Rfam assigns this 200-nucleotide sequence from bacterium 1XD42-54 to the family "FMN riboswitch aptamer (RFN element)". Rfam links the family to the GO term FMN binding.
RNA sequence: UUGGUUCUUCGGGGCGGGGUGACUUUUAUCCGGCAUUUGUAGUCUGAGAAAUGAGAAUUCCCCACCGGCGGUAUAGUCCGCGACCCGCUUAGGCGGCUGAACCGGUGAGAUCAGAGGGAGCUUGCAGGCGUAUUUGCCAGAUAGUUUCAAAAAGAUGGAUUCCGGUACCGACAGUAUAGUCUGGAUGUGAGAAGAAGCAG
Numbered sequence: 001u002u003g004g005u006u007c008u009u010c011g012g013g014g015c016g017g018g019g020u021g022a023c024u025u026u027u028a029u030c031c032g033g034c035a036u037u038u039g040u041a042g043u044c045u046g047a048g049a050a051a052u053g054a055g056a057a058u059u060c061c062c063c064a065c066c067g068g069c070g071g072u073a074u075a076g077u078c079c080g081c082g083a084c085c086c087g088c089u090u091a092g093g094c095g096g097c098u099g100a101a102c103c104g105g106u107g108a109g110a111u112c113a114g115a116g117g118g119a120g121c122u123u124g125c126a127g128g129c130g131u132a133u134u135u136g137c138c139a140g141a142u143a144g145u146u147u148c149a150a151a152a153a154g155a156u157g158g159a160u161u162c163c164g165g166u167a168c169c170g171a172c173a174g175u176a177u178a179g180u181c182u183g184g185a186u187g188u189g190a191g192a193a194g195a196a197g198c199a200g
Stems, first nucleotide, its partner, number of pairs: 003198001005196006017062003064180002066170002068081004076168002085096002101166005172183003